Rfam assigns this 170-nucleotide RNA from Crystallibacter crystallopoietes to the family "c-di-AMP riboswitch aptamer (ydaO/yuaA leader)". A search with the family's covariance model found it, with a score of 64 bits. NCBI's taxonomy places the organism under Bacteria, Actinomycetota, Actinomycetes, Micrococcaceae, Crystallibacter crystallopoietes.

RNA sequence: CCACAAUUCGAGCCCGUUCAGUUACCGCUGGCAGAGGCGGGGGACCCAAUUUUUUGGGCUUCGUUGAAGUCCUUGGGGUGAAGUCGUGGGUACGUAUCCGUACUGCCCCACGGCCGGGUGACUCCUACCCGAACCCGACAGCUUACCUCGCAGGCAUUGGGAGAGGCACA
Numbered sequence: 001c002c003a004c005a006a007u008u009c010g011a012g013c014c015c016g017u018u019c020a021g022u023u024a025c026c027g028c029u030g031g032c033a034g035a036g037g038c039g040g041g042g043g044a045c046c047c048a049a050u051u052u053u054u055u056g057g058g059c060u061u062c063g064u065u066g067a068a069g070u071c072c073u074u075g076g077g078g079u080g081a082a083g084u085c086g087u088g089g090g091u092a093c094g095u096a097u098c099c100g101u102a103c104u105g106c107c108c109c110a111c112g113g114c115c116g117g118g119u120g121a122c123u124c125c126u127a128c129c130c131g132a133a134c135c136c137g138a139c140a141g142c143u144u145a146c147c148u149c150g151c152a153g154g155c156a157u158u159g160g161g162a163g164a165g166g167c168a169c170a
Stems, first nucleotide, its partner, number of pairs: 001154002007036003037151006047075002076136003084113007116130004